[Rfam]
RNA sequence: GAAUAACACUGUUUUGCUAUUUUCAGUCAAUAACACAAUGAUACAUGAAAAAAUUAUCUUAUGUGUUAUUGUGUUAUUGGUUGGAAAUAGUAAAAGGUGGUAUCC
Numbered sequence: 001g002a003a004u005a006a007c008a009c010u011g012u013u014u015u016g017c018u019a020u021u022u023u024c025a026g027u028c029a030a031u032a033a034c035a036c037a038a039u040g041a042u043a044c045a046u047g048a049a050a051a052a053a054u055u056a057u058c059u060u061a062u063g064u065g066u067u068a069u070u071g072u073g074u075u076a077u078u079g080g081u082u083g084g085a086a087a088u089a090g091u092a093a094a095a096g097g098u099g100g101u102a103u104c105c
Stems, first nucleotide, its partner, number of pairs: 003103003012095009022085027050057001